[Rfam]
RNA: Ruegeria cis52 sRNA
RNA sequence: UGCGCAGCGCGUGGCGUAUCACCACAUCGCGGAAUUUCACGCCCUUGAGCCGCGCGGUGCGGAUAUAUUGCGCUGUCAUCACCUCGGUCAUCGAGGCGCGCGUCAUGCGGGCGAUAUAGCCCAUGCCGUAAAGCGCGAUGGUCAGCACCGGCAGGCCGAAAUUCCAGAAGGUGAUCUUGU
Dot-bracket structure: ....((.(((((..((...((.......(.(......(.(.(...(((..((((((((((((.....))))))))......(((((.....)))))))))..)))...).).)......).).)).))....))))).))....(((...((.((........)).....)).....)))